[Rfam]
RNA sequence: CGAACUCAUCGUAAUCGUUCAGGGCCUUACGUAAGACCUAUAGAGCGAAUUUUUGGAAGCCUCUACGAGGUAGAGGCG
Numbered sequence: 001c002g003a004a005c006u007c008a009u010c011g012u013a014a015u016c017g018u019u020c021a022g023g024g025c026c027u028u029a030c031g032u033a034a035g036a037c038c039u040a041u042a043g044a045g046c047g048a049a050u051u052u053u054u055g056g057a058a059g060c061c062u063c064u065a066c067g068a069g070g071u072a073g074a075g076g077c078g
Base pairs, nucleotide, nucleotide: 022039023038024037026035027034028033059077060076061075062074063073064072065071066070

SmY spliceosomal RNA: a 78-nucleotide sequence from Nippostrongylus brasiliensis. By type it is a spliceosomal small nuclear RNA. On this family, see Jones et al., RNA Biol 2009: "A survey of nematode SmY RNAs". The base pairs follow the family's consensus structure, which is taken from published work.